[Rfam]
This 173-nucleotide sequence from Anaerosporomusa subterranea belongs to the Rfam family "Lysine riboswitch aptamer". The organism belongs to Anaerosporomusa, within Bacteria. Riboswitches are metabolite binding domains within certain messenger RNAs that serve as precision sensors for their corresponding targets.
RNA sequence: UGUCUGGAUAGAGGAGCGAAGACCAUGAGUAGGUGUCAGGAGUCGCCAGCAAAGAUUGGCGCUAAAAGGGGUCAUCGCCGAAGCGAUUAACCGCAGGCAAAGGUAAAUUGCUGGGCUUAUGCUAAACAGGUAUAAGACUGUCACCUGACUGUAGGUGGAGUGCUAUCUUGCAA
Numbered sequence: 001u002g003u004c005u006g007g008a009u010a011g012a013g014g015a016g017c018g019a020a021g022a023c024c025a026u027g028a029g030u031a032g033g034u035g036u037c038a039g040g041a042g043u044c045g046c047c048a049g050c051a052a053a054g055a056u057u058g059g060c061g062c063u064a065a066a067a068g069g070g071g072u073c074a075u076c077g078c079c080g081a082a083g084c085g086a087u088u089a090a091c092c093g094c095a096g097g098c099a100a101a102g103g104u105a106a107a108u109u110g111c112u113g114g115g116c117u118u119a120u121g122c123u124a125a126a127c128a129g130g131u132a133u134a135a136g137a138c139u140g141u142c143a144c145c146u147g148a149c150u151g152u153a154g155g156u157g158g159a160g161u162g163c164u165a166u167c168u169u170g171c172a173a
Stems, first nucleotide, its partner, number of pairs: 006168006016078004021073004032063008082112007090104003113139002116136008141158007